[Rfam]
RNA sequence: UGCGAUGAGUCGAUAGAGUCAGAUCAUCAGUGAUGAUGGUUCCGCGCGAGCGGCUAGUGACUUAAUUGAUAGCAGGGCAUGAUUUUCCGACGGAUUUGCGGAAUGCUUGGGUCUCUGAUGUUGUGGAACAC
Number, nucleotide and partner (000 for none) at each position: 001u000002g000003c000004g000005a000006u000007g000008a000009g000010u000011c000012g000013a000014u000015a000016g000017a062018g061019u060020c059021a058022g041023a040024u039025c038026a037027u036028c035029a034030g000031u000032g000033a000034u029035g028036a027037u026038g025039g024040u023041u022042c053043c052044g051045c050046g000047c000048g000049a000050g045051c044052g043053g042054c000055u000056a000057g000058u021059g020060a019061c018062u017063u000064a000065a000066u000067u000068g000069a000070u000071a000072g000073c000074a000075g000076g107077g106078c105079a104080u103081g000082a000083u000084u000085u000086u102087c101088c100089g099090a000091c000092g000093g000094a000095u000096u000097u000098g000099c089100g088101g087102a086103a080104u079105g078106c077107u076108u000109g000110g000111g000112u000113c000114u000115c000116u000117g000118a000119u130120g129121u128122u127123g000124u000125g000126g000127a122128a121129c120130a119131c000
A member of the RNA family "Enterococcus sRNA 68 (Lacto-3 RNA)" from Lactiplantibacillus mudanjiangensis, 131 nucleotides long. It scores 85 bits against the family's covariance model. For this family Rfam cites "Whole-genome mapping of 5' RNA ends in bacteria by tagged sequencing: a comprehensive view in Enterococcus faecalis" (Innocenti et al., RNA, 2015).